The family of this 186-nucleotide RNA sequence from Bacillus aerolatus is "Lysine riboswitch aptamer".
[Rfam]
RNA sequence: CGGUGGGGUAGAGGCUGCAAAAUUGAUGAUUAAACGGCGUGAGGAUGACAACGAAGAUCGCGGUUGAAAGGUGAUUUUGCCGAAGUGCCAGAAGGAAAGUCGUACCUUCUGGCAUUGGGGUUACCUUGAAAAAGGGUGACACUCUUAUUGCAAAGAAAAUAUUUGCAAUAGGGAGCUACAGAUCGC
Numbered sequence: 001c002g003g004u005g006g007g008g009u010a011g012a013g014g015c016u017g018c019a020a021a022a023u024u025g026a027u028g029a030u031u032a033a034a035c036g037g038c039g040u041g042a043g044g045a046u047g048a049c050a051a052c053g054a055a056g057a058u059c060g061c062g063g064u065u066g067a068a069a070g071g072u073g074a075u076u077u078u079g080c081c082g083a084a085g086u087g088c089c090a091g092a093a094g095g096a097a098a099g100u101c102g103u104a105c106c107u108u109c110u111g112g113c114a115u116u117g118g119g120g121u122u123a124c125c126u127u128g129a130a131a132a133a134g135g136g137u138g139a140c141a142c143u144c145u146u147a148u149u150g151c152a153a154a155g156a157a158a159a160u161a162u163u164u165g166c167a168a169u170a171g172g173g174a175g176c177u178a179c180a181g182a183u184c185g186c
Base pairs, nucleotide, nucleotide: 008179009178010177011176017080018079019078020077021076022075023074024073025072033065034064035063037061038060039059084116085115086114087113088112089111090110091109092108093107094106095105117143118142120140121139122138123137124136125135126134127133145171146170147169148168149167150166151165152164153163

Notes: For this family Rfam cites "Riboswitches Control Fundamental Biochemical Pathways in Bacillus subtilis and Other Bacteria" (Mandal et al., Cell, 2003). Rfam links the family to the GO term lysine biosynthetic process. Rfam's curators write: Riboswitches are metabolite binding domains within certain messenger RNAs that serve as precision sensors for their corresponding targets.